About this RNA: The family of this 130-nucleotide sequence from Erinaceus europaeus is "Small nucleolar RNA SNORA30/SNORA37 family". The family has 11 seed sequences and 407 matches in Rfam 15.1.
[Rfam]
RNA sequence: GAAGCACUUUCACAGGCCGUCCCCUAGAUCAUGGGGAUAGGACUUGGUAGCUGGUGCUGAAAGGAAAUCCUUGAUUGCAUUCUUGGCCUGAGUCUGUGCCAGUGGCAGCUGUCCGCUUGAUGGGACACAA
Numbered sequence: 001g002a003a004g005c006a007c008u009u010u011c012a013c014a015g016g017c018c019g020u021c022c023c024c025u026a027g028a029u030c031a032u033g034g035g036g037a038u039a040g041g042a043c044u045u046g047g048u049a050g051c052u053g054g055u056g057c058u059g060a061a062a063g064g065a066a067a068u069c070c071u072u073g074a075u076u077g078c079a080u081u082c083u084u085g086g087c088c089u090g091a092g093u094c095u096g097u098g099c100c101a102g103u104g105g106c107a108g109c110u111g112u113c114c115g116c117u118u119g120a121u122g123g124g125a126c127a128c129a130a
Base pairs, nucleotide, nucleotide: 003058004057005056006055007054008053013046014045015044018041020039022036023035024034025033068124069123070122071120072119073118074117076115077114079112080111083108084107085106087104088102089101090100
Annotation: For this family Rfam cites "RNomics: an experimental approach that identifies 201 candidates for novel, small, non-messenger RNAs in mouse" (Huttenhofer et al., EMBO J, 2001). Pairs were carried over by alignment from the consensus structure, which was predicted with RNAfold.